[Rfam]
RNA: Small nucleolar RNA SNORA61
RNA sequence: ACCCUCCAGUUCCCUUUCCCAUCGGAUCUGAACACCGAUCUUGGUGGUCGUAGAGGAGGAAAAGUAAUAAUGAAGCUGGCCUCACAGUGCUUACAGUCUGUGGGCUAGUUUCAAACAAGG
Numbered sequence: 001a002c003c004c005u006c007c008a009g010u011u012c013c014c015u016u017u018c019c020c021a022u023c024g025g026a027u028c029u030g031a032a033c034a035c036c037g038a039u040c041u042u043g044g045u046g047g048u049c050g051u052a053g054a055g056g057a058g059g060a061a062a063a064g065u066a067a068u069a070a071u072g073a074a075g076c077u078g079g080c081c082u083c084a085c086a087g088u089g090c091u092u093a094c095a096g097u098c099u100g101u102g103g104g105c106u107a108g109u110u111u112c113a114a115a116c117a118a119g120g
Base pairs, nucleotide, nucleotide: 003059004058005057006056007055019047020046021045022044023043025040026039027038028037076108077107078106079105080104081103082102